This 100-nucleotide RNA from Ceratodon purpureus belongs to the Rfam family "Small nucleolar RNA Z157/R69/R10". It is annotated as a C/D-box small nucleolar RNA. The family has 10 seed sequences and 836 matches in Rfam 15.1. For this family Rfam cites "The high diversity of snoRNAs in plants: identification and comparative study of 120 snoRNA genes from Oryza sativa" (Chen et al., Nucleic Acids Res, 2003).
[Rfam]
RNA sequence: UUGGAGGCGAUGAUGAUACCAAAGUGUUUCGGACUAGAGUUUCUGAUCUGGGGUAGUAGCCAGUUUUGAAGAAACCACUCUUGGCUGUCUGAGCCUCGGU
Dot-bracket structure: .(.(((((...............................((((....((((........))))....)))).....................))))).).